[Rfam]
RNA sequence: UGUCUCCUCCACCUCCUCCUUUGGUGGAUUAAACCCGAAGCUAACCGCCUCGGGUUUUUUUUA
Numbered sequence: 001u002g003u004c005u006c007c008u009c010c011a012c013c014u015c016c017u018c019c020u021u022u023g024g025u026g027g028a029u030u031a032a033a034c035c036c037g038a039a040g041c042u043a044a045c046c047g048c049c050u051c052g053g054g055u056u057u058u059u060u061u062u063a
Base pairs, nucleotide, nucleotide: 008028009027010026011025012024013023032056033055034054035053036052037051038050
RNA: Betaproteobacteria toxic small RNA
Organism: Parundibacterium terreum